The record is a 106-nucleotide RNA sequence from Hibiscus trionum, which matches "Plastid-psbA-1 3UTR RNA" in Rfam. Plastid psbA-1 is a non-coding RNA (ncRNA) present in plastids.
RNA sequence: UUGAAGCUCCAUCUACAAAUGGAUAAGACUUUGGUUUUAGUGUUUUGAAAACAAAGAAACAAUAACCAAUUUCUUGUUCUAUCAAGAGUGUUGAUAUUGCUCCUUU
Number, nucleotide and partner (000 for none) at each position: 001u000002u000003g000004a000005a000006g000007c000008u023009c022010c021011a020012u019013c000014u000015a000016c000017a000018a000019a012020u011021g010022g009023a008024u000025a000026a000027g000028a000029c000030u000031u000032u000033g000034g000035u000036u000037u000038u000039a000040g000041u000042g000043u000044u000045u000046u000047g000048a000049a000050a000051a000052c000053a106054a105055a104056g103057a000058a101059a000060c099061a098062a097063u096064a095065a000066c000067c000068a091069a000070u000071u088072u087073c086074u085075u084076g000077u000078u000079c000080u000081a000082u000083c000084a075085a074086g073087a072088g071089u000090g000091u068092u000093g000094a000095u064096a063097u062098u061099g060100c000101u058102c000103c056104u055105u054106u053